[Rfam]
RNA sequence: CGGCGGGACACCCCUCCCCAACGAGGGGCGCAUAUCUGAAAGGGUAUCAGAC
Numbered sequence: 001c002g003g004c005g006g007g008a009c010a011c012c013c014c015u016c017c018c019c020a021a022c023g024a025g026g027g028g029c030g031c032a033u034a035u036c037u038g039a040a041a042g043g044g045u046a047u048c049a050g051a052c
Base pairs, nucleotide, nucleotide: 011028012027013026014025015024016023032047033046034045035044036043037042
RNA: serC leader